[Rfam]
Shown here is a 98-nucleotide RNA from Theobroma umbraticum, a member of the family "Small nucleolar RNA snoR8a".
Its family is annotated with nucleolus and RNA processing in the Gene Ontology.
The family has 7 seed sequences and 956 matches in Rfam 15.1.
On this family, see Brown et al., RNA 2001: "Multiple snoRNA gene clusters from Arabidopsis".
A search with the family's covariance model found it, with a score of 43 bits.
RNA sequence: UAUGGAGUUAACGAUGAUUAUAAAAAUAAUUUCUUGUUCUGACUUGCCUAGUUUGGACAUGACAAACCUUUUAUUACAACCAUAAAAUCUGAGCUCCA
Numbered sequence: 001u002a003u004g005g006a007g008u009u010a011a012c013g014a015u016g017a018u019u020a021u022a023a024a025a026a027u028a029a030u031u032u033c034u035u036g037u038u039c040u041g042a043c044u045u046g047c048c049u050a051g052u053u054u055g056g057a058c059a060u061g062a063c064a065a066a067c068c069u070u071u072u073a074u075u076a077c078a079a080c081c082a083u084a085a086a087a088u089c090u091g092a093g094c095u096c097c098a
Base pairs, nucleotide, nucleotide: 003098004097006095007094008093009092